Rfam assigns this 52-nucleotide sequence from Oculatella sp. LEGE 06141 to the family "Nitrogen stress-induced RNA 1". Pairs were carried over by alignment from the consensus structure. Rfam 15.1 lists 962 matches to the family in 163 species. On this family, see Ionescu et al., J Mol Biol 2010: "Heterocyst-specific transcription of NsiR1, a non-coding RNA encoded in a tandem array of direct repeats in cyanobacteria". A search with the family's covariance model found it, with a score of 54 bits. It is annotated as a small RNA.
RNA sequence: UGGUAGAUGCACCCUGAUUCAAAUCCCUGGCUGCGUGCUGGGGAUUUUUUGU
Number, nucleotide and partner (000 for none) at each position: 001u000002g013003g012004u011005a000006g000007a000008u000009g000010c000011a004012c003013c002014c000015u000016g000017a000018u000019u000020c000021a000022a000023a000024u044025c043026c042027c041028u040029g039030g038031c037032u000033g000034c000035g000036u000037g031038c030039u029040g028041g027042g026043g025044a024045u000046u000047u000048u000049u000050u000051g000052u000